[Rfam]
Nucleotides: 105
Base pairs, nucleotide, nucleotide: 006093008091009090010089011055012054013053014052016049017042018041019040020039021038022037023036024035025034026033061086062085063084064083067080068079069078070077
Number, partner (000 for none) and nucleotide at each position: 001000c002000c003000a004000c005000u006093u007000c008091g009090c010089u011055a012054g013053g014052g015000g016049u017042g018041u019040u020039g021038g022037c023036c024035u025034g026033c027000c028000g029000c030000a031000a032000g033026g034025c035024a036023g037022g038021u039020c040019g041018a042017c043000u044000g045000a046000g047000a048000g049016a050000g051000u052014c053013c054012c055011u056000u057000u058000g059000a060000a061086c062085c063084u064083g065000a066000u067080u068079g069078a070077g071000g072000u073000a074000a075000u076000c077070c078069u079068c080067g081000c082000g083064c084063a085062g086061g087000g088000a089010a090009g091008c092000c093006g094000u095000g096000u097000u098000c099000a100000g101000c102000g103000u104000g105000c